The family of this 53-nucleotide RNA is "Mu-gpT-DE RNA". Pairs were carried over by alignment from the consensus structure, which is taken from published work.
RNA sequence: UCCUGACAGCCGCAUUCCGUGGCUGACACCGGCCAAGACAGGAGAAAAUCAUG
Numbered sequence: 001u002c003c004u005g006a007c008a009g010c011c012g013c014a015u016u017c018c019g020u021g022g023c024u025g026a027c028a029c030c031g032g033c034c035a036a037g038a039c040a041g042g043a044g045a046a047a048a049u050c051a052u053g
Stems, first nucleotide, its partner, number of pairs: 002042004007025005
It is one of the family's seed sequences.